The family of this 89-nucleotide RNA sequence from Vulpes vulpes is "mir-8799 microRNA precursor family". Rfam links the family to the GO terms miRNA-mediated post-transcriptional gene silencing and RISC complex. It scores 76 bits against the family's covariance model. The family has 7 seed sequences and 20,638 matches in Rfam 15.1.
RNA sequence: GGGGGGAGGCCGGAUCCUGGGCUGUGUCCCAGCGCCCUGUGCUUUGGCGCCUGUACUGUUGGAUUCGCGCUCCCACCCUGCAGCCCCCU
Numbered sequence: 001g002g003g004g005g006g007a008g009g010c011c012g013g014a015u016c017c018u019g020g021g022c023u024g025u026g027u028c029c030c031a032g033c034g035c036c037c038u039g040u041g042c043u044u045u046g047g048c049g050c051c052u053g054u055a056c057u058g059u060u061g062g063a064u065u066c067g068c069g070c071u072c073c074c075a076c077c078c079u080g081c082a083g084c085c086c087c088c089u
Stems, first nucleotide, its partner, number of pairs: 001089006009081002012077002019073003023069004027063003030058003034054002039051001041050002